[Rfam]
Nucleotides: 101
Stems, first nucleotide, its partner, number of pairs: 015091007023083022
Number, partner (000 for none) and nucleotide at each position: 001000u002000c003000g004000u005000u006000c007000u008000c009000g010000g011000u012000u013000u014000c015091c016090g017089c018088u019087c020086u021085u022000u023083u024082c025081u026080a027079g028078c029077u030076u031075u032074u033073u034072u035071u036070c037069g038068u039067g040066a041065u042064a043063g044062a045000u046000g047000a048000a049000c050000a051000u052000a053000a054000u055000a056000u057000g058000u059000u060000c061000a062044u063043c064042u065041a066040u067039c068038a069037c070036g071035a072034a073033a074032a075031a076030a077029a078028g079027c080026u081025a082024g083023a084000a085021a086020a087019g088018a089017g090016c091015g092000g093000a094000a095000a096000c097000c098000g099000a100000g101000a